Pab19 RNA: a 102-nucleotide sequence from Thermococcus piezophilus. The family's RNA type in Rfam is H/ACA-box small nucleolar RNA. Lineage of the source: Archaea > Methanobacteriati > Methanobacteriota > Thermococci > Thermococcus. The pairing is the family consensus, mapped onto this sequence. A reference for the family is Muller et al. (2008), "Combined in silico and experimental identification of the Pyrococcus abyssi H/ACA sRNAs and their target sites in ribosomal RNAs", Nucleic Acids Res. From the family's description: By using various computational and experimental approaches in three Pyrococcus genomes seven H/ACA sRNAs and 15 pseudouridine resides on rRNA were identified. One H/ACA motif was shown to guide up to three distinct pseudouridylations.
[Rfam]
RNA sequence: GCGCCCAAACAGGGCGCGGAACACCCAGGCGCCAGACGGCGGCGUCGGGGGGAAAGGGUGCAAAGCACCCAAGAUGAACCCCGCCCUCCAGCCUGGGUCACA
Numbered sequence: 001g002c003g004c005c006c007a008a009a010c011a012g013g014g015c016g017c018g019g020a021a022c023a024c025c026c027a028g029g030c031g032c033c034a035g036a037c038g039g040c041g042g043c044g045u046c047g048g049g050g051g052g053a054a055a056g057g058g059u060g061c062a063a064a065g066c067a068c069c070c071a072a073g074a075u076g077a078a079c080c081c082c083g084c085c086c087u088c089c090a091g092c093c094u095g096g097g098u099c100a101c102a
Stems, first nucleotide, its partner, number of pairs: 001017006023098008046083005056070006